[Rfam]
RNA sequence: ACCGGACCGGCUCCUCCCCCCCCGAGUCGGCCGGAAAGACGACCCCCGCUCUCCCCCCCCCGGCGGGGGUCGUCGCAU
Numbered sequence: 001a002c003c004g005g006a007c008c009g010g011c012u013c014c015u016c017c018c019c020c021c022c023c024g025a026g027u028c029g030g031c032c033g034g035a036a037a038g039a040c041g042a043c044c045c046c047c048g049c050u051c052u053c054c055c056c057c058c059c060c061c062g063g064c065g066g067g068g069g070u071c072g073u074c075g076c077a078u
Stems, first nucleotide, its partner, number of pairs: 002034004007030007038074013
Overview:
A member of the RNA family "6C RNA" from Streptomyces somaliensis, 78 nucleotides long. It is annotated as a cis-regulatory element. The source organism's lineage runs through Bacteria, Bacillati, Actinomycetota, Streptomyces and Streptomyces somaliensis.